[Rfam]
RNA sequence: AUGCAUCUAUUUGACAGACCUGGAACAGUUAUUGUUUGCCACUAAGAUUUCCACUACAGAUGCAAGAAAGAAGUGUCCUUGCAUUUCCUGUCUGAUUGUGGCAGCCAACAUUGAAUGGGGGAAUACAGGA
Numbered sequence: 001a002u003g004c005a006u007c008u009a010u011u012u013g014a015c016a017g018a019c020c021u022g023g024a025a026c027a028g029u030u031a032u033u034g035u036u037u038g039c040c041a042c043u044a045a046g047a048u049u050u051c052c053a054c055u056a057c058a059g060a061u062g063c064a065a066g067a068a069a070g071a072a073g074u075g076u077c078c079u080u081g082c083a084u085u086u087c088c089u090g091u092c093u094g095a096u097u098g099u100g101g102c103a104g105c106c107a108a109c110a111u112u113g114a115a116u117g118g119g120g121g122a123a124u125a126c127a128g129g130a
Base pairs, nucleotide, nucleotide: 002064003063004062005061006060007059008058012053013052016050017049018048020046026038027037028036076122077121078120079119080118082113085108086107088104089103090102091101092100
RNA: Small nucleolar RNA SNORA31
Organism: Nomascus leucogenys